MIR2912 microRNA precursor family: a 156-nucleotide RNA sequence from Populus deltoides.
RNA sequence: UCUAGAACUCGAGAUAUGGGUUAACCACUGAAUAGUGUCUAGGUUGGAGGACAGAUUCAGACGUCUCUUUUGAUGCUAAGAUUUGAACUUGAAAACAGAAGAUUUGAAUCUUAGACUCUUCAUGAAAGUUUUAGGCCUAUGUCUUAGCUUUCCAUU
Numbered sequence: 001u002c003u004a005g006a007a008c009u010c011g012a013g014a015u016a017u018g019g020g021u022u023a024a025c026c027a028c029u030g031a032a033u034a035g036u037g038u039c040u041a042g043g044u045u046g047g048a049g050g051a052c053a054g055a056u057u058c059a060g061a062c063g064u065c066u067c068u069u070u071u072g073a074u075g076c077u078a079a080g081a082u083u084u085g086a087a088c089u090u091g092a093a094a095a096c097a098g099a100a101g102a103u104u105u106g107a108a109u110c111u112u113a114g115a116c117u118c119u120u121c122a123u124g125a126a127a128g129u130u131u132u133a134g135g136c137c138u139a140u141g142u143c144u145u146a147g148c149u150u151u152c153c154a155u156u
Stems, first nucleotide, its partner, number of pairs: 003154001005152003008147002011145010021134004027129003035123003041119003045115001048112004054105002057102002062098001068092002072088001074086001
Dot-bracket structure: ..(.(((((.((((((((((((((..(((.....(((...(((.(..((((..((.((...(.....((..(.(...........).)..)).....)..)).))...))))..).))).)))...))).)))).))))))))))))..))).)..
The organism belongs to Populus, within Eukaryota. Rfam 15.1 lists 15,051 matches to the family in 15 species.